[Rfam]
RNA sequence: GAAUCGUGUUGGGCAGUUGCCCCGAUAUGUAAGGGGAGGAAAGUCCGAACUCCGCAGAACAAGGUGCCGGGUAACGCCCGGGGUUCCGGUUAAACCGGAACACGGAUAGUGCCACAGAAAACAGACCGCCCUGACUUUAGUUGGGGUAAGGGUGAAAAGGUGAGGUAAGAGCUCACCGCUUCGGCAGUAAUGCAGGAGGUCCCGUUACGGGAUCCCGCCUCCGGCGGGACAAGGUAAACCCCACCUGGAGCAAGGUCAAGCAGAAGGUCUUCCCGUUUUGACGGGAAAAGGUUGUUCGCCUUUAGCGCCUUCGGGUAGACCGCUGGAACCCGGUAGUAAUGCCGGGUCUAGAUAAAUAACUGCCGUCCGCCUCAGGCGGAUUACAGAAUUCGGCUUACAGACACGAUUCAUCU
Numbered sequence: 001g002a003a004u005c006g007u008g009u010u011g012g013g014c015a016g017u018u019g020c021c022c023c024g025a026u027a028u029g030u031a032a033g034g035g036g037a038g039g040a041a042a043g044u045c046c047g048a049a050c051u052c053c054g055c056a057g058a059a060c061a062a063g064g065u066g067c068c069g070g071g072u073a074a075c076g077c078c079c080g081g082g083g084u085u086c087c088g089g090u091u092a093a094a095c096c097g098g099a100a101c102a103c104g105g106a107u108a109g110u111g112c113c114a115c116a117g118a119a120a121a122c123a124g125a126c127c128g129c130c131c132u133g134a135c136u137u138u139a140g141u142u143g144g145g146g147u148a149a150g151g152g153u154g155a156a157a158a159g160g161u162g163a164g165g166u167a168a169g170a171g172c173u174c175a176c177c178g179c180u181u182c183g184g185c186a187g188u189a190a191u192g193c194a195g196g197a198g199g200u201c202c203c204g205u206u207a208c209g210g211g212a213u214c215c216c217g218c219c220u221c222c223g224g225c226g227g228g229a230c231a232a233g234g235u236a237a238a239c240c241c242c243a244c245c246u247g248g249a250g251c252a253a254g255g256u257c258a259a260g261c262a263g264a265a266g267g268u269c270u271u272c273c274c275g276u277u278u279u280g281a282c283g284g285g286a287a288a289a290g291g292u293u294g295u296u297c298g299c300c301u302u303u304a305g306c307g308c309c310u311u312c313g314g315g316u317a318g319a320c321c322g323c324u325g326g327a328a329c330c331c332g333g334u335a336g337u338a339a340u341g342c343c344g345g346g347u348c349u350a351g352a353u354a355a356a357u358a359a360c361u362g363c364c365g366u367c368c369g370c371c372u373c374a375g376g377c378g379g380a381u382u383a384c385a386g387a388a389u390u391c392g393g394c395u396u397a398c399a400g401a402c403a404c405g406a407u408u409c410a411u412c413u
Base pairs, nucleotide, nucleotide: 001409002408003407004406005405006404007403008402009401010400011398012364013363014362015361016360017359018358020036021035022034023033041396042395043394045393046392047391048390049389050250051249052248053247057297058296059295060294062246063245064244065243066242067081068080069079070078071077082103083101084100085099086098087097088096089095090094104241105240109239110238111235112234113233126151127150128147129146130145131144132143133142134141135140159177160176161175162174163173164172178230179228180227254321255320256319257318263312264311265310266309267308268307288302289301290300291299292298328347329346330345331344332343333342334341335340
RNA: Bacterial RNase P class A
Organism: Melioribacter roseus